Shown here is a 77-nucleotide RNA sequence from Stegodyphus mimosarum, a member of the family "mir-133 microRNA precursor family". NCBI's taxonomy places the organism under Eukaryota, Metazoa, Araneae, Eresoidea, Stegodyphus. Rfam 15.1 lists 3,763 matches to the family in 801 species. Rfam describes the family as follows. mir-133 was first experimentally characterised in mouse and homologues have since been discovered in several other species. The mature sequence is excised from the 3' arm of the hairpin. The base pairs follow the family's consensus structure, which was predicted with PFOLD.
[Rfam]
RNA sequence: AUGCUUUAGUUGGUUGACACUGGGCCAAAUUGUAUGCCUAUGGAUAGCAUUUGGUCCCCUUCAACCAGCUGUAGUUA
Numbered sequence: 001a002u003g004c005u006u007u008a009g010u011u012g013g014u015u016g017a018c019a020c021u022g023g024g025c026c027a028a029a030u031u032g033u034a035u036g037c038c039u040a041u042g043g044a045u046a047g048c049a050u051u052u053g054g055u056c057c058c059c060u061u062c063a064a065c066c067a068g069c070u071g072u073a074g075u076u077a
Stems, first nucleotide, its partner, number of pairs: 003075003008070010022057009